[Rfam]
Nucleotides: 048
Stems, first nucleotide, its partner, number of pairs: 002019007035048005
Number, partner (000 for none) and nucleotide at each position: 001000g002019c003018g004017c005016g006015g007014g008013g009000a010000c011000g012000a013008c014007c015006c016005c017004g018003c019002g020000g021000c022000g023000c024000u025000g026000c027000g028000a029000a030000c031000c032000c033000c034000g035048g036047c037046g038045g039044g040000a041000c042000g043000a044039c045038c046037c047036g048035c
Record summary:
Guanidine-II riboswitch aptamer (mini-ykkC): a 48-nucleotide RNA sequence from Salinisphaera orenii. Simpler in structure and has fewer highly conserved nucleotide positions than the ykkC-yxkD leader. Despite this each of its two stem-loop structures directly bind free guanidine. Therefore, mini-ykkC RNA motif represents a distinct class of guanidine-sensing RNAs. Its crystal structure was also determined. The base pairs follow the family's consensus structure, which is taken from published work. NCBI's taxonomy places the organism under Bacteria, Pseudomonadati, Gammaproteobacteria, Salinisphaeraceae, Salinisphaera orenii subsp. orenii.